The family of this 150-nucleotide RNA sequence from Paraburkholderia humisilvae is "Group II catalytic intron D1-D4-7". Rfam describes the family as follows. Group II introns are found in rRNA, tRNA and mRNA of organelles in fungi, plants and protists, and also in mRNA in bacteria. The base pairs follow the family's consensus structure. The family has 244 seed sequences and 1,296 matches in Rfam 15.1.

RNA sequence: CCGGCUGUUCCGUCAGCCGUACCCUACCGGCGCAUGCGAUCUCGGUAACGAGGUGGUAUGAAGCCGCCGGGACAACGUAACCUGCACGAGAGUGCGGCAUUGACCCCGUGAGGGAGAAGUGCUUUCUAUCAGCAUCAGAUGGAUAAGGUG
Dot-bracket structure: .((((((......))))))........((((((((((.((((((....)))))).)))))....)))))............((((((....))))))((((....((....))....))))...((((((.......)))))).......

The literature on the family includes a 2001 paper in EMBO J by Chu et al., "Control of branch-site choice by a group II intron".